[Rfam]
RNA: Glycine riboswitch aptamer
RNA sequence: CUCUGGAAAGCAGUCCCGGUUUCGACCGCGGACUCACCGACGGUGCAAGCCGGCCUGAAGGGCCGGCGGAAUCUCUCAGGUCCGAUACAGAG
Numbered sequence: 001c002u003c004u005g006g007a008a009a010g011c012a013g014u015c016c017c018g019g020u021u022u023c024g025a026c027c028g029c030g031g032a033c034u035c036a037c038c039g040a041c042g043g044u045g046c047a048a049g050c051c052g053g054c055c056u057g058a059a060g061g062g063c064c065g066g067c068g069g070a071a072u073c074u075c076u077c078a079g080g081u082c083c084g085a086u087a088c089a090g091a092g
Base pairs, nucleotide, nucleotide: 001092002091003090004089005088012034013033014032015031036081037080038079039077040076043075045073049067050066051065052064053063054062055061056060